This 102-nucleotide RNA sequence from Pontibacillus yanchengensis belongs to the Rfam family "Purine riboswitch aptamer".
RNA sequence: ACUACACUUCACUACAUUCCUUGUAUAAGUUUGAGAAUAGGGCUCAAACGUAUCUACUAAGCUACCGUAAAUAGCUUGGCUACAAGGGAUAUUGUUUAUUAU
Numbered sequence: 001a002c003u004a005c006a007c008u009u010c011a012c013u014a015c016a017u018u019c020c021u022u023g024u025a026u027a028a029g030u031u032u033g034a035g036a037a038u039a040g041g042g043c044u045c046a047a048a049c050g051u052a053u054c055u056a057c058u059a060a061g062c063u064a065c066c067g068u069a070a071a072u073a074g075c076u077u078g079g080c081u082a083c084a085a086g087g088g089a090u091a092u093u094g095u096u097u098a099u100u101a102u
Base pairs, nucleotide, nucleotide: 018088019087020086021085022084023083024082025081029049030048031047032046033045034044035043058078059077060076061075062074063073064072
The organism belongs to Pontibacillus yanchengensis, within Bacteria. Rfam links the family to the GO term purine nucleobase biosynthetic process. It scores 86 bits against the family's covariance model.